[Rfam]
RNA sequence: CGGAGUUCUUGGCUUUGAGAACUGAAUUCCAAGGGUUGUAUUUCGGAAAUCACCCUAUGGGGCUCAGUUCUUCAGCUUGGACACUCCCU
Number, nucleotide and partner (000 for none) at each position: 001c000002g000003g000004a000005g000006u000007u000008c080009u079010u000011g077012g076013c075014u000015u000016u000017g000018a071019g070020a069021a068022c067023u066024g065025a064026a000027u000028u000029c000030c000031a000032a000033g056034g055035g054036u000037u000038g000039u000040a000041u000042u000043u000044c000045g000046g000047a000048a000049a000050u000051c000052a000053c000054c035055c034056u033057a000058u000059g000060g000061g000062g000063c000064u025065c024066a023067g022068u021069u020070c019071u018072u000073c000074a000075g013076c012077u011078u000079g009080g008081a000082c000083a000084c000085u000086c000087c000088c000089u000

Rfam assigns this 89-nucleotide RNA sequence from Esox lucius to the family "mir-146 microRNA precursor family". Rfam 15.1 lists 1,617 matches to the family in 642 species. For this family Rfam cites "Identification of tissue-specific microRNAs from mouse" (Lagos-Quintana et al., Curr Biol, 2002). The source organism's lineage runs through Eukaryota, Chordata, Gnathostomata, Esociformes and Esox. The base pairs follow the family's consensus structure, which was predicted with WAR.